RNA sequence: ACUCAUCUUCAGGGCGGGGCGAAACUCCCCACCGGCGGUAAGCCUGUUUGUUGUCAGGCAAGCCCGCGAGCGCUCGCGUUCACGCGAGGUCAGCAGAUCUGGUGUAAUUCCAGGGCCGACGGUCACAGUCCGGAUGGAAGAAGAUGUUG
Numbered sequence: 001a002c003u004c005a006u007c008u009u010c011a012g013g014g015c016g017g018g019g020c021g022a023a024a025c026u027c028c029c030c031a032c033c034g035g036c037g038g039u040a041a042g043c044c045u046g047u048u049u050g051u052u053g054u055c056a057g058g059c060a061a062g063c064c065c066g067c068g069a070g071c072g073c074u075c076g077c078g079u080u081c082a083c084g085c086g087a088g089g090u091c092a093g094c095a096g097a098u099c100u101g102g103u104g105u106a107a108u109u110c111c112a113g114g115g116c117c118g119a120c121g122g123u124c125a126c127a128g129u130c131c132g133g134a135u136g137g138a139a140g141a142a143g144a145u146g147u148u149g
Stems, first nucleotide, its partner, number of pairs: 004146007017029003031129002033118002035067004062116002070094002098114005120132003

FMN riboswitch aptamer (RFN element): a 149-nucleotide RNA from Acidithiobacillus ferrianus. Its family is annotated with FMN binding in the Gene Ontology. The family's consensus secondary structure is taken from published work.